The record is a 415-nucleotide RNA from Tianweitania populi, which matches "Bacterial RNase P class A" in Rfam. The family's consensus secondary structure is taken from published work. It is annotated as a ribozyme. The match comes from Rfam's covariance-model search (310 bits).

[Rfam]
RNA sequence: CCAGCCGGCCGGGCGGCCGCAGCCGCAAGCACCGAAAGGUCGCGGCUGAGGAAAGUCCGGGCUCCGGGAAACACGGUUCCGGCUAACGGCCGGCGGGGGCGACCCCAGGGAAAGUGCCACAGAAAGCAAACCACCUCGGCACCGGCCGCAAGGCCGUUCCUGCCGGGGUAAGGGUGAAAGGGUGGGGUAAGAGCCCACCGCGAGCCUGGCAACAGGAUCGGCACGGUAAACCCAACCGGGAGCAAGACCGAAUAGGGAUGGCGCGAAGGGCAACCUUCGGGGCGGUUUCCAGCCUUGUCAUCCGGGUAGGUUGCGUGAGGCGCAUGGCAACAUGUGUCCAAGAAGAAUGGCCGCCACGUUUCUGCCUUUGCGGGCAGGGGCCAUACAAAACCCGGCUUAUAGGCCGGCUGGCACU
Number, nucleotide and partner (000 for none) at each position: 001c411002c410003a409004g408005c407006c406007g405008g404009c403010c402011g400012g355013g354014c353015g352016g351017c350018c349019g000020c048021a047022g046023c045024c044025g043026c042027a000028a040029g000030c000031a000032c000033c000034g000035a000036a000037a000038g000039g000040u028041c000042g026043c025044g024045g023046c022047u021048g020049a000050g000051g000052a000053a398054a397055g396056u000057c395058c394059g393060g392061g391062c242063u241064c240065c239066g000067g000068g000069a000070a000071a000072c000073a000074c238075g237076g236077u235078u234079c093080c092081g091082g090083c089084u000085a000086a000087c000088g000089g083090c082091c081092g080093g079094c108095g106096g105097g104098g103099g000100c000101g000102a000103c098104c097105c096106c095107a000108g094109g233110g232111a000112a000113a000114g231115u230116g227117c226118c225119a000120c000121a000122g000123a000124a000125a000126g000127c000128a000129a000130a000131c173132c172133a169134c168135c167136u166137c165138g164139g163140c162141a161142c000143c000144g000145g000146c000147c000148g000149c000150a000151a000152g000153g000154c000155c000156g000157u000158u000159c000160c000161u141162g140163c139164c138165g137166g136167g135168g134169u133170a000171a000172g132173g131174g000175u000176g000177a000178a000179a000180g000181g199182g198183u197184g196185g195186g194187g000188u000189a000190a000191g000192a000193g000194c186195c185196c184197a183198c182199c181200g222201c220202g219203a218204g000205c216206c215207u214208g213209g000210c000211a000212a000213c208214a207215g206216g205217a000218u203219c202220g201221g000222c200223a000224c000225g118226g117227u116228a000229a000230a115231c114232c110233c109234a078235a077236c076237c075238g074239g065240g064241a063242g062243c000244a000245a000246g312247a311248c310249c309250g000251a000252a000253u000254a000255g000256g303257g302258a301259u300260g299261g298262c000263g000264c000265g000266a000267a000268g000269g000270g000271c000272a000273a000274c000275c000276u000277u000278c000279g000280g000281g000282g296283c000284g294285g293286u292287u000288u000289c000290c000291a000292g286293c285294c284295u000296u282297g000298u261299c260300a259301u258302c257303c256304g000305g000306g000307u000308a000309g249310g248311u247312u246313g000314c000315g000316u000317g000318a000319g338320g337321c336322g335323c334324a333325u332326g331327g000328c000329a000330a000331c326332a325333u324334g323335u322336g321337u320338c319339c000340a000341a000342g000343a000344a000345g000346a000347a000348u000349g018350g017351c016352c015353g014354c013355c012356a000357c000358g000359u000360u000361u000362c000363u000364g000365c000366c000367u000368u000369u000370g000371c000372g000373g000374g000375c000376a000377g000378g000379g000380g000381c000382c000383a000384u000385a000386c000387a000388a000389a000390a000391c061392c060393c059394g058395g057396c055397u054398u053399a000400u011401a000402g010403g009404c008405c007406g006407g005408c004409u003410g002411g001412c000413a000414c000415u000